[Rfam]
RNA: pemK RNA
RNA sequence: AUAAUGAUAUUCCUUGAGAUAGUCGGCACGCAGUGGCGGAGGUGAAAUUCCUGUGA
Number, nucleotide and partner (000 for none) at each position: 001a000002u000003a000004a000005u000006g000007a000008u000009a000010u000011u000012c053013c022014u021015u000016g000017a000018g000019a000020u000021a014022g013023u039024c038025g037026g000027c035028a034029c033030g000031c000032a000033g029034u028035g027036g000037c025038g024039g023040a052041g051042g050043u000044g000045a000046a000047a000048u000049u000050c042051c041052u040053g012054u000055g000056a000